[Rfam]
RNA sequence: CGCUCCGUUGGACGCGCCGCAGGCACCAGCAACGGAGGGAUAGCCGGACUGGGGGAAAGUUUUGAGAACCGGCAGAGGGUGGCGAAGCUAGCGCCCUCAAACGAACGGCUGGCGGGC
Numbered sequence: 001c002g003c004u005c006c007g008u009u010g011g012a013c014g015c016g017c018c019g020c021a022g023g024c025a026c027c028a029g030c031a032a033c034g035g036a037g038g039g040a041u042a043g044c045c046g047g048a049c050u051g052g053g054g055g056a057a058a059g060u061u062u063u064g065a066g067a068a069c070c071g072g073c074a075g076a077g078g079g080u081g082g083c084g085a086a087g088c089u090a091g092c093g094c095c096c097u098c099a100a101a102c103g104a105a106c107g108g109c110u111g112g113c114g115g116g117c
Stems, first nucleotide, its partner, number of pairs: 001039001003037008026052004043073005059102004075098006087113006